A member of the RNA family "DUF3800-X RNA", 69 nucleotides long.
[Rfam]
RNA sequence: GUAUGAGUAAGUCGCAAUGAAAGAAUGAUGUCUCAGGAUGAGAUUAGGACGAGUAAUUACGGUUCAUAC
Numbered sequence: 001g002u003a004u005g006a007g008u009a010a011g012u013c014g015c016a017a018u019g020a021a022a023g024a025a026u027g028a029u030g031u032c033u034c035a036g037g038a039u040g041a042g043a044u045u046a047g048g049a050c051g052a053g054u055a056a057u058u059a060c061g062g063u064u065c066a067u068a069c
Base pairs, nucleotide, nucleotide: 001069002068003067004066005065006064012062013061014060016058017057018056031043032042033041034040035039

Description:
The sequence is in the family's curated seed alignment.